[Rfam]
Nucleotides: 109
Stems, first nucleotide, its partner, number of pairs: 002104002005101005016032004034088003038083001041082001043080001047075004
Number, partner (000 for none) and nucleotide at each position: 001000g002104c003103c004000g005101c006100u007099c008098u009097g010000g011000a012000a013000a014000g015000c016032a017031g018030g019029c020000g021000c022000c023000a024000c025000g026000c027000g028000c029019g030018c031017c032016u033000c034088a035087c036086c037000c038083a039000c040000g041082g042000u043080g044000c045000a046000a047075g048074u049073c050072g051000c052000u053000c054000g055000c056000g057000c058000a059000g060000a061000u062000u063000c064000c065000u066000g067000g068000g069000c070000g071000a072050c073049g074048g075047c076000g077000a078000a079000g080043c081000u082041c083038u084000c085000a086036g087035g088034u089000g090000c091000c092000c093000a094000u095000g096000a097009c098008a099007g100006a101005g102000a103003g104002g105000g106000g107000g108000a109000g

Description:
Shown here is a 109-nucleotide RNA sequence from Herbihabitans rhizosphaerae, a member of the family "Glycine riboswitch aptamer".